[Rfam]
RNA: MIR5269 microRNA precursor family
Organism: Medicago truncatula
RNA sequence: UUGGUUUAAAUUAUUGUGGACCUACACUUUGAAAAUUGAACCCACACAAAGGGGUGGGACAUACCUUUAUUUCAUCUAA
Numbered sequence: 001u002u003g004g005u006u007u008a009a010a011u012u013a014u015u016g017u018g019g020a021c022c023u024a025c026a027c028u029u030u031g032a033a034a035a036u037u038g039a040a041c042c043c044a045c046a047c048a049a050a051g052g053g054g055u056g057g058g059a060c061a062u063a064c065c066u067u068u069a070u071u072u073c074a075u076c077u078a079a
Stems, first nucleotide, its partner, number of pairs: 001079004006074001008072004013067001016064003022057003025053001027051005